[Rfam]
RNA sequence: UCAGGUGGUGUAAACAUCCUUCACUCUCAGCUGUGAGAUGGAAGCACACUGAGAGGAGGGGUGUUGACACCAGCUGA
Numbered sequence: 001u002c003a004g005g006u007g008g009u010g011u012a013a014a015c016a017u018c019c020u021u022c023a024c025u026c027u028c029a030g031c032u033g034u035g036a037g038a039u040g041g042a043a044g045c046a047c048a049c050u051g052a053g054a055g056g057a058g059g060g061g062u063g064u065u066g067a068c069a070c071c072a073g074c075u076g077a
Stems, first nucleotide, its partner, number of pairs: 002076003006072001008070004013065008024056002026053005032048001

A member of the RNA family "mir-30 microRNA precursor family" from Petromyzon marinus, 77 nucleotides long. Rfam's curators write: This family consists of the mammalian microRNA (miRNA) precursor mir-30a. Animal miRNAs are transcribed as ~70nt precursors and subsequently processed by the Dicer enzyme to give a ~22nt product. On this family, see Ambros, Cell 2001: "microRNAs: tiny regulators with great potential".